About this RNA
The family of this 88-nucleotide RNA sequence from Canis lupus is "mir-8799 microRNA precursor family". NCBI's taxonomy places the organism under Eukaryota, Chordata, Dipnotetrapodomorpha, Mammalia, Canis lupus. It scores 77 bits against the family's covariance model. Rfam 15.1 lists 20,638 matches to the family in 5 species. Gene Ontology terms of the family: miRNA-mediated post-transcriptional gene silencing and RISC complex.

[Rfam]
RNA sequence: CGGGGGAGGCCGGAUCCUGGGCUGUGUCCCGGCGCCCUGUGCUCCGGAGCCUGCGCUGUUGGAUUCGGUUCCGGCCCCGCAGCCCCUC
Numbered sequence: 001c002g003g004g005g006g007a008g009g010c011c012g013g014a015u016c017c018u019g020g021g022c023u024g025u026g027u028c029c030c031g032g033c034g035c036c037c038u039g040u041g042c043u044c045c046g047g048a049g050c051c052u053g054c055g056c057u058g059u060u061g062g063a064u065u066c067g068g069u070u071c072c073g074g075c076c077c078c079g080c081a082g083c084c085c086c087u088c
Stems, first nucleotide, its partner, number of pairs: 002087005009080002012076002016074002019071003025067002027063003030058006039051001041050003